[Rfam]
This 64-nucleotide sequence from Paenimyroides tangerinum belongs to the Rfam family "S15-Flavobacteria ribosomal protein leader".
For this family Rfam cites "Discovery of 20 novel ribosomal leader candidates in bacteria and archaea" (Eckert and Weinberg, BMC Microbiol, 2020).
The source organism's lineage runs through Bacteria, Pseudomonadati, Flavobacteriia, Flavobacteriaceae and Paenimyroides.
By type it is a cis-regulatory leader.
Pairs were carried over by alignment from the consensus structure, which is taken from published work.

RNA sequence: UACAUUUGCAGGGAAUUAGAAAACCUAAUUCGUACAUAAUAAUCAUUUAAACAAUAUUAGCAUG
Dot-bracket structure: .............((((((.....))))))..................................